[Rfam]
RNA sequence: AGGUCAUUUCAAAGAGGGAUUUGGGGACUGAGACCAAGAGCUCUUAACACUCUGACCAAUAUUGAAGUUCUCCGUAGGAUGUAAUAAUUACUCAAUAGUGCCAUGGUUUCCUGAGGAGAUAGAAGA
Dot-bracket structure: .(((((.......(((((.((..((........))..)).))))).......)))))...........(((((..((((....((...((((....))))..))....))))..))))).......

A member of the RNA family "Small nucleolar RNA SNORA25" from Callorhinus ursinus, 126 nucleotides long. A search with the family's covariance model found it, with a score of 102 bits. It is annotated as an H/ACA-box small nucleolar RNA. Rfam links the family to the GO terms nucleolus and RNA processing. The family's consensus secondary structure was predicted with RNAfold. NCBI's taxonomy places the organism under Eukaryota, Chordata, Gnathostomata, Laurasiatheria, Callorhinus.